[Rfam]
RNA sequence: CCAUCAGGUGCGAUAAUCCUACCUAUUGUUUUUGGAGGGCAAAUUAGAACAUGAUGAUUGGAGUUCGAAUGAUGCAUGAUUAGCUUUUCUUUGUAAGCUGGACUUGCAACACCCUGAUCGCUCCUGAA
Numbered sequence: 001c002c003a004u005c006a007g008g009u010g011c012g013a014u015a016a017u018c019c020u021a022c023c024u025a026u027u028g029u030u031u032u033u034g035g036a037g038g039g040c041a042a043a044u045u046a047g048a049a050c051a052u053g054a055u056g057a058u059u060g061g062a063g064u065u066c067g068a069a070u071g072a073u074g075c076a077u078g079a080u081u082a083g084c085u086u087u088u089c090u091u092u093g094u095a096a097g098c099u100g101g102a103c104u105u106g107c108a109a110c111a112c113c114c115u116g117a118u119c120g121c122u123c124c125u126g127a128a
Base pairs, nucleotide, nucleotide: 024043026041028040029039030038031037032036071089072088074086077082093121094120096118098116100114101113

Record summary: U8 small nucleolar RNA: a 128-nucleotide sequence from Carlito syrichta. The match comes from Rfam's covariance-model search (74 bits). The organism belongs to Carlito, within Eukaryota.